[Rfam]
RNA: sRNA-Xcc1
Organism: Arsenophonus nasoniae
RNA sequence: GGUCGGGUAGCGAACAGUAUAUACAACACCCUAUUGGGGAAAACUGUUGGCCGUCUAUAUCCGGUGUUCAAGUACCCGACCGCCCAUCC
Numbered sequence: 001g002g003u004c005g006g007g008u009a010g011c012g013a014a015c016a017g018u019a020u021a022u023a024c025a026a027c028a029c030c031c032u033a034u035u036g037g038g039g040a041a042a043a044c045u046g047u048u049g050g051c052c053g054u055c056u057a058u059a060u061c062c063g064g065u066g067u068u069c070a071a072g073u074a075c076c077c078g079a080c081c082g083c084c085c086a087u088c089c
Stems, first nucleotide, its partner, number of pairs: 001081009013048004018043001020042001029038003050065004